[Rfam]
RNA: Gammaproteobacterial sRNA STnc400
Organism: Bowmanella pacifica
RNA sequence: CUGGGCUGCGUUAGAUAUUUAUCUACCGAUCCUUCGUGCCUCAGGAGCGGUAGAUAAAUAUCUAACGCUUCCUCUGAGUAAAGAGUUAAAUAAUGGGGCUUUUAAGCCCCAUUAUUCAUAUAAGGA
Numbered sequence: 001c002u003g004g005g006c007u008g009c010g011u012u013a014g015a016u017a018u019u020u021a022u023c024u025a026c027c028g029a030u031c032c033u034u035c036g037u038g039c040c041u042c043a044g045g046a047g048c049g050g051u052a053g054a055u056a057a058a059u060a061u062c063u064a065a066c067g068c069u070u071c072c073u074c075u076g077a078g079u080a081a082a083g084a085g086u087u088a089a090a091u092a093a094u095g096g097g098g099c100u101u102u103u104a105a106g107c108c109c110c111a112u113u114a115u116u117c118a119u120a121u122a123a124g125g126a
Stems, first nucleotide, its partner, number of pairs: 003073003008068021030046004036041001088116002091114001093112008